[Rfam]
RNA: 7SK RNA
Organism: Rhinopithecus roxellana
RNA sequence: GGAUGUGAGGGCGAUCUGGCUGCGACAUCUGUCACCCCAUUGAUCGCCAGGGUUGAUUCGGCUGAUCUGGCUGGCUAGGCGGGUGUCCCCUUCCUCCCUCACCGCUCCAUGUGCGUCCCUCCCGAAGCUGCGCGCUCGGUCGAAGAGGACGACCAUCCCCGCUAGAGGAGGACCGGUCUUCGGUCAAGGGUAUACGAGUAGCUGCGCUCCCCUGCUAGAACCUCCAAACAAGCUCUCAAGGUCCUUAAUGAGGGGGAAACUAGAGCCUCCUGUGCUGCCUCCCCAGAUCCCGGAGUCU
Numbered sequence: 001g002g003a004u005g006u007g008a009g010g011g012c013g014a015u016c017u018g019g020c021u022g023c024g025a026c027a028u029c030u031g032u033c034a035c036c037c038c039a040u041u042g043a044u045c046g047c048c049a050g051g052g053u054u055g056a057u058u059c060g061g062c063u064g065a066u067c068u069g070g071c072u073g074g075c076u077a078g079g080c081g082g083g084u085g086u087c088c089c090c091u092u093c094c095u096c097c098c099u100c101a102c103c104g105c106u107c108c109a110u111g112u113g114c115g116u117c118c119c120u121c122c123c124g125a126a127g128c129u130g131c132g133c134g135c136u137c138g139g140u141c142g143a144a145g146a147g148g149a150c151g152a153c154c155a156u157c158c159c160c161g162c163u164a165g166a167g168g169a170g171g172a173c174c175g176g177u178c179u180u181c182g183g184u185c186a187a188g189g190g191u192a193u194a195c196g197a198g199u200a201g202c203u204g205c206g207c208u209c210c211c212c213u214g215c216u217a218g219a220a221c222c223u224c225c226a227a228a229c230a231a232g233c234u235c236u237c238a239a240g241g242u243c244c245u246u247a248a249u250g251a252g253g254g255g256g257a258a259a260c261u262a263g264a265g266c267c268u269c270c271u272g273u274g275c276u277g278c279c280u281c282c283c284c285a286g287a288u289c290c291c292g293g294a295g296u297c298u
Stems, first nucleotide, its partner, number of pairs: 001108003005102007013093002018090002024087010035074002037070003042067004046062003116171002118168004122139004127135002141161002147158003201266003208259001211256003215252001223251002232246001